[Rfam]
Overview:
This 95-nucleotide sequence from Brevibacillus panacihumi belongs to the Rfam family "Glycine riboswitch aptamer". The match comes from Rfam's covariance-model search (42 bits). This family represents the bacterial glycine riboswitch. NCBI's taxonomy places the organism under Bacteria, Bacillati, Bacillota, Caryophanales, Brevibacillus panacihumi.
RNA sequence: CAUCUCUGGAGAGUGCCCGAUCAAGGGCCACCAAAGGGGAAACUUGCUGGAAAGUAGCAAGGUAACUCUCAGGUACCAAGGACAGAGGAGGAGAA
Numbered sequence: 001c002a003u004c005u006c007u008g009g010a011g012a013g014u015g016c017c018c019g020a021u022c023a024a025g026g027g028c029c030a031c032c033a034a035a036g037g038g039g040a041a042a043c044u045u046g047c048u049g050g051a052a053a054g055u056a057g058c059a060a061g062g063u064a065a066c067u068c069u070c071a072g073g074u075a076c077c078a079a080g081g082a083c084a085g086a087g088g089a090g091g092a093g094a095a
Stems, first nucleotide, its partner, number of pairs: 001090001003088006015028004030074003034069001037068003043061007